[Rfam]
RNA: mir-320 microRNA precursor family
Nucleotides: 076
Stems, first nucleotide, its partner, number of pairs: 014059005022051004029044004
Number, partner (000 for none) and nucleotide at each position: 001000c002000a003000u004000a005000u006000u007000u008000u009000a010000a011000g012000c013000c014059u015058u016057c017056u018055c019000u020000u021000c022051c023050u024049g025048g026000u027000u028000c029044u030043u031042c032041c033000c034000a035000g036000a037000g038000u039000c040000a041032g042031g043030a044029a045000a046000a047000g048025c049024u050023g051022g052000a053000u054000u055018g056017a057016g058015a059014g060000g061000g062000u063000a064000a065000a066000a067000g068000a069000a070000a071000a072000a073000a074000g075000u076000u